RNA: mir-26 microRNA precursor family
Nucleotides: 084
Stems, first nucleotide, its partner, number of pairs: 002083004007078006014071009024061010
Number, partner (000 for none) and nucleotide at each position: 001000c002083g003082g004081u005080c006000u007078c008077u009076u010075c011074u012073c013000c014071c015070a016069a017068g018067u019066a020065a021064c022063a023000a024061g025060c026059g027058a028057u029056a030055g031054g032053a033052c034000g035000a036000g037000a038000g039000g040000c041000c042000a043000u044000u045000u046000c047000c048000u049000c050000u051000c052033g053032u054031c055030c056029u057028a058027u059026c060025g061024c062000u063022u064021g065020u066019u067018a068017c069016u070015u071014g072000g073012g074011a075010g076009a077008a078007g079000a080005g081004a082003c083002c084000g